The family of this 358-nucleotide RNA from Thiohalophilus thiocyanatoxydans is "Bacterial RNase P class A". Its family is annotated with tRNA processing, dimeric ribonuclease P complex and ribonuclease P activity in the Gene Ontology. It is annotated as a ribozyme.
RNA sequence: AGAGUCGGCCUGACAGUCGCUCCGCCGCCGGCGGGGAGGAAAGUCCGGGCUCCAUCGGGCGGGAUGCCAGGUAACGCCUGGGAGGCGCGAGCCUACGGAAAGUGCCGCAGAAAAUAUACCGCCCAAGCCGCGCAAGCGGCCGGUAAGGGUGAAAUGGUGCGGUAAGAGCGCACCGCGCCGGUGGUAACACCGGUGGCAGGGCAAACCCCAUCCGGAGCAAGACCAAAUAGGGGAACUGGCCGCAAGGCCACGUGUGGCCCACACGGUUCCCGGGUAGGUCGCUAGAGGUGCGCGGUGACGCGCAUCCCAGAGGAAUGACUGUCCACGACAGAACCCGGCUUAACGGCCGACUCUUUCU
Number, nucleotide and partner (000 for none) at each position: 001a354002g353003a352004g351005u350006c349007g348008g347009c346010c345011u343012g323013a322014c321015a320016g319017u318018c317019g000020c036021u035022c034023c033024g032025c031026c030027g000028c000029c000030g026031g025032c024033g023034g022035g021036g020037a000038g000039g000040a000041a341042a340043g339044u000045c338046c337047g336048g335049g334050c217051u216052c215053c214054a000055u000056c000057g260058g259059g258060c257061g000062g213063g212064a211065u210066g209067c081068c080069a079070g078071g077072u000073a000074a000075c000076g000077c071078c070079u069080g068081g067082g096083a094084g093085g092086c091087g000088c000089g000090a000091g086092c085093c084094u083095a000096c082097g208098g207099a000100a000101a000102g206103u205104g202105c201106c200107g000108c000109a000110g000111a000112a000113a000114a000115u000116a000117u000118a000119c148120c147121g144122c143123c142124c000125a000126a000127g140128c139129c138130g137131c136132g000133c000134a000135a000136g131137c130138g129139g128140c127141c000142g123143g122144u121145a000146a000147g120148g119149g000150u000151g000152a000153a000154a000155u000156g174157g173158u172159g171160c170161g169162g000163u000164a000165a000166g000167a000168g000169c161170g160171c159172a158173c157174c156175g197176c195177g194178c193179c192180g191181g190182u189183g188184g000185u000186a000187a000188c183189a182190c181191c180192g179193g178194u177195g176196g000197c175198a000199g000200g106201g105202c104203a000204a000205a103206c102207c098208c097209c066210a065211u064212c063213c062214g053215g052216a051217g050218c000219a000220a000221g280222a279223c278224c277225a000226a000227a000228u000229a000230g000231g271232g270233g269234a268235a267236c266237u000238g000239g000240c000241c000242g000243c000244a000245a000246g000247g000248c000249c000250a000251c265252g264253u263254g262255u261256g000257g060258c059259c058260c057261a255262c254263a253264c252265g251266g236267u235268u234269c233270c232271c231272g000273g000274g000275u000276a000277g224278g223279u222280c221281g000282c000283u000284a000285g000286a000287g306288g305289u304290g303291c302292g301293c300294g299295g000296u000297g000298a000299c294300g293301c292302g291303c290304a289305u288306c287307c000308c000309a000310g000311a000312g000313g000314a000315a000316u000317g018318a017319c016320u015321g014322u013323c012324c000325a000326c000327g000328a000329c000330a000331g000332a000333a000334c049335c048336c047337g046338g045339c043340u042341u041342a000343a011344c000345g010346g009347c008348c007349g006350a005351c004352u003353c002354u001355u000356u000357c000358u000
A search with the family's covariance model found it, with a score of 329 bits. For this family Rfam cites "The Ribonuclease P Database" (Brown, Nucleic Acids Res, 1999).